[Rfam]
RNA sequence: AACAACGAUGAUGAGUAUAUACAGACCUGUAAUGAGUUGCGGAUAUGAUCGCAGUUUUUUAUGAACAUCUAAGGGACUGAGUUUGUU
Dot-bracket structure: .(((((..........................................................................)).))).
RNA: Small nucleolar RNA SNORD25